The family of this 136-nucleotide RNA from Jaculus jaculus is "Small nucleolar RNA SNORA70". A search with the family's covariance model found it, with a score of 114 bits. Rfam links the family to the GO terms nucleolus and RNA processing. The literature on the family includes a 2000 paper in IUBMB Life by Charette and Gray, "Pseudouridine in RNA: what, where, how, and why". Rfam describes the family as follows. snoRNA U70 seems to be exclusive to mammals and is a member of the H/ACA class of snoRNA which contain H (ANANNA) and ACA box motifs. H/ACA box snoRNAs are involved in the conversion of uridines to pseudouridines (5-ribosyluracil) a constituent of structural RNAs (transfer, ribosomal, small nuclear, and small nucleolar). The family has 43 seed sequences and 5,173 matches in Rfam 15.1. The base pairs follow the family's consensus structure, which was predicted with PFOLD. The family's RNA type in Rfam is H/ACA-box small nucleolar RNA.

RNA sequence: CUGCAACCAAUUAAGCUGUCAGUGUUCCUUUCCUCAUGGGGACCAGGUGUGCAGUGGCUGCAAACAGCAGCCUCCUUGGGUAGUGUAUGUAGCCUGUUUCUUGUAUAAGUUGCCCUAAGGGAUGUUGGAGACAUCU
Numbered sequence: 001c002u003g004c005a006a007c008c009a010a011u012u013a014a015g016c017u018g019u020c021a022g023u024g025u026u027c028c029u030u031u032c033c034u035c036a037u038g039g040g041g042a043c044c045a046g047g048u049g050u051g052c053a054g055u056g057g058c059u060g061c062a063a064a065c066a067g068c069a070g071c072c073u074c075c076u077u078g079g080g081u082a083g084u085g086u087a088u089g090u091a092g093c094c095u096g097u098u099u100c101u102u103g104u105a106u107a108a109g110u111u112g113c114c115c116u117a118a119g120g121g122a123u124g125u126u127g128g129a130g131a132c133a134u135c136u
Base pairs, nucleotide, nucleotide: 002053003052004051005050020047025042026041027040028039080123081122090112091111092110093109095107